The family of this 129-nucleotide RNA from Limosilactobacillus frumenti is "Ribosomal protein L20 leader". This family is a putative r-protein leader autoregulatory structure found in B. subtilis and other low-GC Gram-positive bacteria. It is located in the 5' untranslated regions of mRNAs encoding initiation factor 3 followed by ribosomal proteins L35 and L20 (infC-rpmI-rplT). A Rho-independent transcription terminator structure that is probably involved in regulation is included at the 3' end. The match comes from Rfam's covariance-model search (70 bits).

[Rfam]
RNA sequence: AAGAAAAAGCAGAAGCACCCGCUUCUCGCCUAGGUGAUCAGUGUUGCCGGGCUGACGAGAUGAAAUAAGAACAAAUCUUAUUGUUCAUUAUUGGCGGGGUGCGUAUGCACUCCGCUUUUUUUGCUGGAU
Numbered sequence: 001a002a003g004a005a006a007a008a009g010c011a012g013a014a015g016c017a018c019c020c021g022c023u024u025c026u027c028g029c030c031u032a033g034g035u036g037a038u039c040a041g042u043g044u045u046g047c048c049g050g051g052c053u054g055a056c057g058a059g060a061u062g063a064a065a066u067a068a069g070a071a072c073a074a075a076u077c078u079u080a081u082u083g084u085u086c087a088u089u090a091u092u093g094g095c096g097g098g099g100u101g102c103g104u105a106u107g108c109a110c111u112c113c114g115c116u117u118u119u120u121u122u123g124c125u126g127g128a129u
Stems, first nucleotide, its partner, number of pairs: 011026006028052003034047005093116010